[Rfam]
RNA: Ascomycota telomerase RNA, nucleotides 1302 to 1661
Organism: Colletotrichum musicola
RNA sequence: UACGAACAGAGAGAGCUUUUUCGGUCUACCAGGACCCGACCCAGGCUGCGAUUCAGCUCGCCGAGGCCUGUUGGGCUGAGCAGAUGAGGGAGGAGGCUCGUGAGCAGAGGGGCAGCGCAAGCAACCCCGGCAGCGCUCUGGUUAGGAGGCGAUGAACGGCUGGACAGAUCCAAGCGACCCUGGGACCCAUCUCGUGUUGGAGUCAAAGUUUUGUGCUUGUCCAGGAUCGUCUGUGAGAUGGACUGCCGCUCUCUCACAACCGCUCGGAGUGCGCGCUCGUUGGAACUCAAAGGGCAGGCCAUCGGAAGGUAGCCCUGGUUGCCGUCUCUCCAGAAAUGGCGAGAUGGCAACCCCCUGCGG
Numbered sequence: 001u002a003c004g005a006a007c008a009g010a011g012a013g014a015g016c017u018u019u020u021u022c023g024g025u026c027u028a029c030c031a032g033g034a035c036c037c038g039a040c041c042c043a044g045g046c047u048g049c050g051a052u053u054c055a056g057c058u059c060g061c062c063g064a065g066g067c068c069u070g071u072u073g074g075g076c077u078g079a080g081c082a083g084a085u086g087a088g089g090g091a092g093g094a095g096g097c098u099c100g101u102g103a104g105c106a107g108a109g110g111g112g113c114a115g116c117g118c119a120a121g122c123a124a125c126c127c128c129g130g131c132a133g134c135g136c137u138c139u140g141g142u143u144a145g146g147a148g149g150c151g152a153u154g155a156a157c158g159g160c161u162g163g164a165c166a167g168a169u170c171c172a173a174g175c176g177a178c179c180c181u182g183g184g185a186c187c188c189a190u191c192u193c194g195u196g197u198u199g200g201a202g203u204c205a206a207a208g209u210u211u212u213g214u215g216c217u218u219g220u221c222c223a224g225g226a227u228c229g230u231c232u233g234u235g236a237g238a239u240g241g242a243c244u245g246c247c248g249c250u251c252u253c254u255c256a257c258a259a260c261c262g263c264u265c266g267g268a269g270u271g272c273g274c275g276c277u278c279g280u281u282g283g284a285a286c287u288c289a290a291a292g293g294g295c296a297g298g299c300c301a302u303c304g305g306a307a308g309g310u311a312g313c314c315c316u317g318g319u320u321g322c323c324g325u326c327u328c329u330c331c332a333g334a335a336a337u338g339g340c341g342a343g344a345u346g347g348c349a350a351c352c353c354c355c356u357g358c359g360g
Base pairs, nucleotide, nucleotide: 184204185203186202187200188199189198206218207217208216209215